[Rfam]
RNA sequence: UGCGCGUUAGGGAUAGUAGUGGAGCUCUUUUAUAUCGGGCUUUUUUGCCUGAUAUAAAAAGCGGGAACGGAUAGCUCGACCUUUA
Numbered sequence: 001u002g003c004g005c006g007u008u009a010g011g012g013a014u015a016g017u018a019g020u021g022g023a024g025c026u027c028u029u030u031u032a033u034a035u036c037g038g039g040c041u042u043u044u045u046u047g048c049c050u051g052a053u054a055u056a057a058a059a060a061g062c063g064g065g066a067a068c069g070g071a072u073a074g075c076u077c078g079a080c081c082u083u084u085a
Stems, first nucleotide, its partner, number of pairs: 010077003014073002019068002024062003030057011

This 85-nucleotide RNA sequence from Flavobacterium geliluteum belongs to the Rfam family "Flavo-1 RNA". Rfam 15.1 lists 7,497 matches to the family in 411 species.